Plastid-ycf2 5UTR RNA: a 75-nucleotide RNA from Beta vulgaris. Pairs were carried over by alignment from the consensus structure, which was predicted with LocARNA. Taxonomically the source falls in Beta vulgaris (Eukaryota, Amaranthaceae, Betoideae, Beta). From the family's description: Plastid ycf2 is a non-coding RNA (ncRNA) recognised in plastids. It was found in the prime untranslated region (5UTR) of ycf2 genes, it presents a tRNA-like motif which suggests it can be involved in mRNA maturation, particularly involved in defining the precise 5' end of the transcript. The family's RNA type in Rfam is cis-regulatory element.
[Rfam]
RNA sequence: GUGCAUCUAGUAGGAAUUGAACCUAUGAAUUCGACAAUUAUAAGUUGGGCGCUUUAACCAUUCGGCUAUGGAUGC
Numbered sequence: 001g002u003g004c005a006u007c008u009a010g011u012a013g014g015a016a017u018u019g020a021a022c023c024u025a026u027g028a029a030u031u032c033g034a035c036a037a038u039u040a041u042a043a044g045u046u047g048g049g050c051g052c053u054u055u056a057a058c059c060a061u062u063c064g065g066c067u068a069u070g071g072a073u074g075c
Stems, first nucleotide, its partner, number of pairs: 003075006010026005040069003044066006051059001